[Rfam]
RNA: Small nucleolar RNA SNORA84
RNA sequence: GCCCUGUGGUUACUGGACACUGCUGUGCCCGUGCAGUGCUUCAGCCUGGAGAACGGGCCCACAGCGACUCUGUGAUGUACGCGGGGAGUCUGUGAUCCGUGAGCAGCCUCCACAGCCCGGUCACAGGCACACCC
Numbered sequence: 001g002c003c004c005u006g007u008g009g010u011u012a013c014u015g016g017a018c019a020c021u022g023c024u025g026u027g028c029c030c031g032u033g034c035a036g037u038g039c040u041u042c043a044g045c046c047u048g049g050a051g052a053a054c055g056g057g058c059c060c061a062c063a064g065c066g067a068c069u070c071u072g073u074g075a076u077g078u079a080c081g082c083g084g085g086g087a088g089u090c091u092g093u094g095a096u097c098c099g100u101g102a103g104c105a106g107c108c109u110c111c112a113c114a115g116c117c118c119g120g121u122c123a124c125a126g127g128c129a130c131a132c133c134c
Stems, first nucleotide, its partner, number of pairs: 001058004007050001013044005019037005070126001072124005081116002083113001085111002088108001090106004